[Rfam]
RNA sequence: AUAUCUUUUUUCAUGAUGAAAUACCAAUGCAACAUAGAGUCAAGCUCUGAGCUUUAUAGCAUGGACGAGACUUGCUUAUUUUAUAAAACUCUGAAAAGAUUU
Numbered sequence: 001a002u003a004u005c006u007u008u009u010u011u012c013a014u015g016a017u018g019a020a021a022u023a024c025c026a027a028u029g030c031a032a033c034a035u036a037g038a039g040u041c042a043a044g045c046u047c048u049g050a051g052c053u054u055u056a057u058a059g060c061a062u063g064g065a066c067g068a069g070a071c072u073u074g075c076u077u078a079u080u081u082u083a084u085a086a087a088a089c090u091c092u093g094a095a096a097a098g099a100u101u102u
Base pairs, nucleotide, nucleotide: 001102003100004099005098006097007096008095
RNA: Small nucleolar RNA snR66